[Rfam]
A member of the RNA family "c-di-GMP-I-GGC riboswitch aptamer" from Geomonas silvestris, 89 nucleotides long.
RNA sequence: UCCGAUAAAGGCAAAACCGGAGCAAUCCGGUGACGCAAAGCCACGGGUCCACCACCUACCUUCAGUGGGGGAUAGCCGGGUUACCGAAG
Numbered sequence: 001u002c003c004g005a006u007a008a009a010g011g012c013a014a015a016a017c018c019g020g021a022g023c024a025a026u027c028c029g030g031u032g033a034c035g036c037a038a039a040g041c042c043a044c045g046g047g048u049c050c051a052c053c054a055c056c057u058a059c060c061u062u063c064a065g066u067g068g069g070g071g072a073u074a075g076c077c078g079g080g081u082u083a084c085c086g087a088a089g
Stems, first nucleotide, its partner, number of pairs: 001089001003086002011036002016031006034075001039082004044078003047073003

Pairs were carried over by alignment from the consensus structure, which is taken from published work. The literature on the family includes a 2017 paper in Proc Natl Acad Sci U S A by Weinberg et al., "Bioinformatic analysis of riboswitch structures uncovers variant classes with altered ligand specificity". Clan: c-di-GMP_I riboswitch clan.